The family of this 84-nucleotide RNA from Salvia splendens is "Small nucleolar RNA Z221/R21b". The literature on the family includes a 2003 paper in Nucleic Acids Res by Chen et al., "The high diversity of snoRNAs in plants: identification and comparative study of 120 snoRNA genes from Oryza sativa". Rfam links the family to the GO terms nucleolus and RNA processing. A search with the family's covariance model found it, with a score of 58 bits.
[Rfam]
RNA sequence: UGACCGUGAUUGAAAUUUGGAGAAUGUCAUGCACCACUCUGAUCUAGUGAUGAUAAUUUCUCAACCCAUACAAUUUCUGAGUCA
Number, nucleotide and partner (000 for none) at each position: 001u084002g083003a082004c081005c000006g000007u000008g000009a000010u000011u000012g000013a000014a000015a000016u000017u000018u000019g000020g000021a000022g000023a000024a000025u000026g000027u000028c000029a000030u000031g000032c000033a000034c000035c000036a000037c000038u000039c000040u000041g000042a000043u000044c000045u000046a000047g000048u000049g000050a000051u000052g000053a000054u000055a000056a000057u000058u000059u000060c000061u000062c000063a000064a000065c000066c000067c000068a000069u000070a000071c000072a000073a000074u000075u000076u000077c000078u000079g000080a000081g004082u003083c002084a001